Record summary:
Rfam assigns this 96-nucleotide RNA from Microbacterium ulmi to the family "Glycine riboswitch aptamer". It scores 49 bits against the family's covariance model.
RNA sequence: GCCGCUCUGGAAAGUGGCUCCCAGCGAGCCCGCCGACGGUGAAAGCCGGAUGCCCGCAUCCUGCGAAGCUCUCAGGCCCAUGACAGAGGGGGAGUU
Numbered sequence: 001g002c003c004g005c006u007c008u009g010g011a012a013a014g015u016g017g018c019u020c021c022c023a024g025c026g027a028g029c030c031c032g033c034c035g036a037c038g039g040u041g042a043a044a045g046c047c048g049g050a051u052g053c054c055c056g057c058a059u060c061c062u063g064c065g066a067a068g069c070u071c072u073c074a075g076g077c078c079c080a081u082g083a084c085a086g087a088g089g090g091g092g093a094g095u096u
Stems, first nucleotide, its partner, number of pairs: 002091002005088005016030004032077003035073002039071001041069001045064002